[Rfam]
U12 minor spliceosomal RNA: a 149-nucleotide RNA sequence from Aquarana catesbeiana.
For this family Rfam cites "Pre-mRNA splicing: the discovery of a new spliceosome doubles the challenge" (Tarn and Steitz, Trends Biochem Sci, 1997).
Rfam links the family to the GO terms pre-mRNA branch point binding, mRNA branch site recognition and U12 snRNP.
Pairs were carried over by alignment from the consensus structure.
The organism belongs to Aquarana, within Eukaryota.
The family's RNA type in Rfam is spliceosomal small nuclear RNA.
RNA sequence: AUGCCUUAAACUAAUGAGUAAGGAAAAUUACAAACUGGGGUGAUGCCUGGUUUUCUCACUUAGUAUGAGAUGAAUUUUUGAAUGGGUACAGGUUUCCCCUUGGAGGCUCUGCCUACUUUGCGGAAUCUUCAGGUGAUGAGAUCUACCCA
Numbered sequence: 001a002u003g004c005c006u007u008a009a010a011c012u013a014a015u016g017a018g019u020a021a022g023g024a025a026a027a028u029u030a031c032a033a034a035c036u037g038g039g040g041u042g043a044u045g046c047c048u049g050g051u052u053u054u055c056u057c058a059c060u061u062a063g064u065a066u067g068a069g070a071u072g073a074a075u076u077u078u079u080g081a082a083u084g085g086g087u088a089c090a091g092g093u094u095u096c097c098c099c100u101u102g103g104a105g106g107c108u109c110u111g112c113c114u115a116c117u118u119u120g121c122g123g124a125a126u127c128u129u130c131a132g133g134u135g136a137u138g139a140g141a142u143c144u145a146c147c148c149a
Stems, first nucleotide, its partner, number of pairs: 004023005032053008054070005083149005090144007099133002102130005108124005